Background
The record is a 136-nucleotide sequence from Oryctolagus cuniculus, which matches "Small nucleolar RNA SNORA58" in Rfam. From the family's description: ACA52 is a member of the H/ACA class of snoRNA that guide the sites of modification of uridines to pseudouridines. Its Rfam clan is "SNORA44 clan". The literature on the family includes a 2001 paper in EMBO J by Huttenhofer et al., "RNomics: an experimental approach that identifies 201 candidates for novel, small, non-messenger RNAs in mouse". Pairs were carried over by alignment from the consensus structure, which was predicted with PFOLD. NCBI's taxonomy places the organism under Eukaryota, Chordata, Vertebrata, Lagomorpha, Oryctolagus.

RNA sequence: AGGCAUACCCAUAGACUUUGCCUGAAUGUGCUCAUGGCCAGACAAGGGGGACUGUAUACCAAGAGUAAAUUUAGAGUUUGUGCCAGCUGUAGCCAGCUAAAUACAUGGCUAUAUAAAUUGCCACACUUCAACAUCA
Numbered sequence: 001a002g003g004c005a006u007a008c009c010c011a012u013a014g015a016c017u018u019u020g021c022c023u024g025a026a027u028g029u030g031c032u033c034a035u036g037g038c039c040a041g042a043c044a045a046g047g048g049g050g051a052c053u054g055u056a057u058a059c060c061a062a063g064a065g066u067a068a069a070u071u072u073a074g075a076g077u078u079u080g081u082g083c084c085a086g087c088u089g090u091a092g093c094c095a096g097c098u099a100a101a102u103a104c105a106u107g108g109c110u111a112u113a114u115a116a117a118u119u120g121c122c123a124c125a126c127u128u129c130a131a132c133a134u135c136a
Stems, first nucleotide, its partner, number of pairs: 003059001005057004016047005022041003074128003078125001082121002095110003